A member of the RNA family "MIR7502 microRNA precursor family" from Gossypium australe, 135 nucleotides long. Pairs were carried over by alignment from the consensus structure, which was predicted with RNAalifold. The family has 6 seed sequences and 74,505 matches in Rfam 15.1. Lineage of the source: Eukaryota > Euphyllophyta > Malvaceae > Malvoideae > Gossypium.
RNA sequence: UAUUAAAAUUUUUACCCAUUUGUACUGUUAAAAAUUAGCGUAGUUGACGGAAUAACCAAACUGAUAUUCAAUGUAUAUCUUAUAUUGAUAUACAAAGACCAAUUUUUAACAAUAGAAAUAAAUUGAAUUUUAACA
Numbered sequence: 001u002a003u004u005a006a007a008a009u010u011u012u013u014a015c016c017c018a019u020u021u022g023u024a025c026u027g028u029u030a031a032a033a034a035u036u037a038g039c040g041u042a043g044u045u046g047a048c049g050g051a052a053u054a055a056c057c058a059a060a061c062u063g064a065u066a067u068u069c070a071a072u073g074u075a076u077a078u079c080u081u082a083u084a085u086u087g088a089u090a091u092a093c094a095a096a097g098a099c100c101a102a103u104u105u106u107u108a109a110c111a112a113u114a115g116a117a118a119u120a121a122a123u124u125g126a127a128u129u130u131u132a133a134c135a
Stems, first nucleotide, its partner, number of pairs: 003133006010127003014123001018119004023114002026111001028109006
A search with the family's covariance model found it, with a score of 83 bits.